[Rfam]
The family of this 77-nucleotide sequence from Varroa destructor is "mir-153 microRNA precursor family". Taxonomically the source falls in Varroa (Eukaryota, Eumetazoa, Arthropoda, Mesostigmata).

RNA sequence: GAAUAUCCCACUUUUGUGAUUGGUGCAAUUUUUUGUUUCAAGGCCGGAAUUGCAUAGUCACAAAAGUGAUGGUGUUU
Numbered sequence: 001g002a003a004u005a006u007c008c009c010a011c012u013u014u015u016g017u018g019a020u021u022g023g024u025g026c027a028a029u030u031u032u033u034u035g036u037u038u039c040a041a042g043g044c045c046g047g048a049a050u051u052g053c054a055u056a057g058u059c060a061c062a063a064a065a066g067u068g069a070u071g072g073u074g075u076u077u
Base pairs, nucleotide, nucleotide: 002076003075004074005073006072007071009068010067011066012065013064014063015062016061017060018059019058020057024054025053026052027051028050029049030048031047032046
Notes:
Its family is annotated with RISC complex and miRNA-mediated post-transcriptional gene silencing in the Gene Ontology.